[Rfam]
RNA sequence: UCCCUGCUUUUCCUCCCUGAGCAGGAGCCUUAACGUGAUGACAGCGAAAAGGCUUUCUAACCCCGGCUGAUGGCCGGGGUUUUUUUU
Numbered sequence: 001u002c003c004c005u006g007c008u009u010u011u012c013c014u015c016c017c018u019g020a021g022c023a024g025g026a027g028c029c030u031u032a033a034c035g036u037g038a039u040g041a042c043a044g045c046g047a048a049a050a051g052g053c054u055u056u057c058u059a060a061c062c063c064c065g066g067c068u069g070a071u072g073g074c075c076g077g078g079g080u081u082u083u084u085u086u087u
Base pairs, nucleotide, nucleotide: 003025004024005023006022007021008020027053028052029051030050031049060080061079062078063077064076065075066074067073

Burkholderia RNA 7 (anti-hemB): an 87-nucleotide RNA from Roseateles asaccharophilus.
NCBI's taxonomy places the organism under Bacteria, Pseudomonadota, Betaproteobacteria, Burkholderiales, Roseateles.
Gene Ontology terms of the family: bacterial biofilm matrix and protein binding.
From the family's description: This RNA motif was identified by computational search in b-proteobacteria Burkholderia.
It scores 63 bits against the family's covariance model.